[Rfam]
RNA sequence: UUGCACAGUGAACACCCAAUUGUGCUUCAUAGUUCCCUUGGCUUUGACUCUGUGCUAGAGCAAAGUCUGUUCUCUGCAUUGAAAGGACUGUUUAUCCUUUUAAAUAUAUUCAGAAAGUCAGCACAUUA
Numbered sequence: 001u002u003g004c005a006c007a008g009u010g011a012a013c014a015c016c017c018a019a020u021u022g023u024g025c026u027u028c029a030u031a032g033u034u035c036c037c038u039u040g041g042c043u044u045u046g047a048c049u050c051u052g053u054g055c056u057a058g059a060g061c062a063a064a065g066u067c068u069g070u071u072c073u074c075u076g077c078a079u080u081g082a083a084a085g086g087a088c089u090g091u092u093u094a095u096c097c098u099u100u101u102a103a104a105u106a107u108a109u110u111c112a113g114a115a116a117g118u119c120a121g122c123a124c125a126u127u128a
Stems, first nucleotide, its partner, number of pairs: 003055006010049001013046002016041004022035001024033003057073006074113003078105003081101007
The record is a 128-nucleotide RNA from Rhinolophus ferrumequinum, which matches "Small nucleolar RNA SNORA22" in Rfam. About the family: ACA22 is a member of the H/ACA class of snoRNA that guide the sites of modification of uridines to pseudouridines. The family's consensus secondary structure was predicted with RNAfold. Its family is annotated with RNA processing and nucleolus in the Gene Ontology. It is annotated as an H/ACA-box small nucleolar RNA. A search with the family's covariance model found it, with a score of 129 bits.